The record is a 76-nucleotide sequence from Nesidiocoris tenuis, which matches "mir-190 microRNA precursor family" in Rfam.
[Rfam]
RNA sequence: UCCACUGUCAGAUAUGUUUGAUAUUCUUGGUUGUCCGAUUUUUAUCAACCAGAGAUCAAACAUAUUAUACAGUGGC
Numbered sequence: 001u002c003c004a005c006u007g008u009c010a011g012a013u014a015u016g017u018u019u020g021a022u023a024u025u026c027u028u029g030g031u032u033g034u035c036c037g038a039u040u041u042u043u044a045u046c047a048a049c050c051a052g053a054g055a056u057c058a059a060a061c062a063u064a065u066u067a068u069a070c071a072g073u074g075g076c
Stems, first nucleotide, its partner, number of pairs: 005072004011066012024053002029050005
A reference for the family is Kloosterman et al. (2006), "Cloning and expression of new microRNAs from zebrafish", Nucleic Acids Res.